[Rfam]
RNA sequence: GAUCCUGCGAGGGCUCGUCCGGAGGAAGCUGGAGUACAAAGUUAUGGGCCGACGAACAGAAAUGGCAUACAAGGCCGAGUCUCCGGGUAAGUCAGCACAACAUGACAAAGCCCCGGGUUCAGGAGAUACGGUAAAUGCCGCGGUCGUGUAACGACAGAUCACGUC
Numbered sequence: 001g002a003u004c005c006u007g008c009g010a011g012g013g014c015u016c017g018u019c020c021g022g023a024g025g026a027a028g029c030u031g032g033a034g035u036a037c038a039a040a041g042u043u044a045u046g047g048g049c050c051g052a053c054g055a056a057c058a059g060a061a062a063u064g065g066c067a068u069a070c071a072a073g074g075c076c077g078a079g080u081c082u083c084c085g086g087g088u089a090a091g092u093c094a095g096c097a098c099a100a101c102a103u104g105a106c107a108a109a110g111c112c113c114c115g116g117g118u119u120c121a122g123g124a125g126a127u128a129c130g131g132u133a134a135a136u137g138c139c140g141c142g143g144u145c146g147u148g149u150a151a152c153g154a155c156a157g158a159u160c161a162c163g164u165c
Stems, first nucleotide, its partner, number of pairs: 001016002004013003028165001030163002037157001041152006047145005063140006074132003079127006085113004091106004